[Rfam]
RNA sequence: GCAGUCAACGGUACCGGAGGCGGUUUGUGCCGAGGAUAAGGAGUUGACGGCUAAACCACU
Numbered sequence: 001g002c003a004g005u006c007a008a009c010g011g012u013a014c015c016g017g018a019g020g021c022g023g024u025u026u027g028u029g030c031c032g033a034g035g036a037u038a039a040g041g042a043g044u045u046g047a048c049g050g051c052u053a054a055a056c057c058a059c060u
Stems, first nucleotide, its partner, number of pairs: 001051002004048006
RNA: Bacillus-plasmid RNA